[Rfam]
RNA sequence: UGGGAGGUGGAUACCUGGACAGUCCUGAGCAGUGCUCUGUCCAUCACUACUCCUCCCUAAAGAAUCCCUGCUCUCUGAUGACCGCGGCGAAUUGAGAGAAAUCGUCACGGACAGAUACGGGGCAGACAUCU
Numbered sequence: 001u002g003g004g005a006g007g008u009g010g011a012u013a014c015c016u017g018g019a020c021a022g023u024c025c026u027g028a029g030c031a032g033u034g035c036u037c038u039g040u041c042c043a044u045c046a047c048u049a050c051u052c053c054u055c056c057c058u059a060a061a062g063a064a065u066c067c068c069u070g071c072u073c074u075c076u077g078a079u080g081a082c083c084g085c086g087g088c089g090a091a092u093u094g095a096g097a098g099a100a101a102u103c104g105u106c107a108c109g110g111a112c113a114g115a116u117a118c119g120g121g122g123c124a125g126a127c128a129u130c131u
Base pairs, nucleotide, nucleotide: 002057003056004055005054006053007052016043017042018041022037025034068125069124070123071122072121073120074119082110083109084108087105088104089103090102
RNA: Small Cajal body specific RNA 8
Organism: Myripristis murdjan